[Rfam]
The record is a 316-nucleotide sequence from Candidatus Methanohalarchaeum thermophilum, which matches "Archaeal signal recognition particle RNA" in Rfam. It scores 222 bits against the family's covariance model. The family is grouped with related families in Rfam's "SRP clan". Its family is annotated with SRP-dependent cotranslational protein targeting to membrane, signal sequence recognition and signal recognition particle, plasma membrane targeting in the Gene Ontology.
RNA sequence: CCGGUAGAUAGUCCGGAGGGCCCGGCGUCCUCUGUAACCCAAAAACGCCGUAAUGUGGGGGACGAAGCCCAGAGGAAGGCAGAUUCCUCUAUAAACCAGGACCAGGGCCUUGACGUCGAUUCCUCGUCCCCUGGGACUGGCGGUGACAUGGAAGCCGGUCGGAGGACUGGUUCCCAUGUCCUUACUACGGGUAGUGAUCCAGGCCCGGAAGGGAGCAGAUCACCCGUAGACGUACAGUGCUCAGGGGGUCGCGGGGAUGAGGAGAGGCCCUAGCAGCCAGUUAUAGAGGACCUGUCUACCUCGGGUGCUCUACCGG
Numbered sequence: 001c002c003g004g005u006a007g008a009u010a011g012u013c014c015g016g017a018g019g020g021c022c023c024g025g026c027g028u029c030c031u032c033u034g035u036a037a038c039c040c041a042a043a044a045a046c047g048c049c050g051u052a053a054u055g056u057g058g059g060g061g062a063c064g065a066a067g068c069c070c071a072g073a074g075g076a077a078g079g080c081a082g083a084u085u086c087c088u089c090u091a092u093a094a095a096c097c098a099g100g101a102c103c104a105g106g107g108c109c110u111u112g113a114c115g116u117c118g119a120u121u122c123c124u125c126g127u128c129c130c131c132u133g134g135g136a137c138u139g140g141c142g143g144u145g146a147c148a149u150g151g152a153a154g155c156c157g158g159u160c161g162g163a164g165g166a167c168u169g170g171u172u173c174c175c176a177u178g179u180c181c182u183u184a185c186u187a188c189g190g191g192u193a194g195u196g197a198u199c200c201a202g203g204c205c206c207g208g209a210a211g212g213g214a215g216c217a218g219a220u221c222a223c224c225c226g227u228a229g230a231c232g233u234a235c236a237g238u239g240c241u242c243a244g245g246g247g248g249u250c251g252c253g254g255g256g257a258u259g260a261g262g263a264g265a266g267g268c269c270c271u272a273g274c275a276g277c278c279a280g281u282u283a284u285a286g287a288g289g290a291c292c293u294g295u296c297u298a299c300c301u302c303g304g305g306u307g308c309u310c311u312a313c314c315g316g
Stems, first nucleotide, its partner, number of pairs: 001316008011063004015033007038059004043054001067306004072302004077297005082291001084289001088288001090286001094282003099278001102273001104271008114261001116259001121257007128247008136238004140233003143182001145180007153172008185229007195222005204213003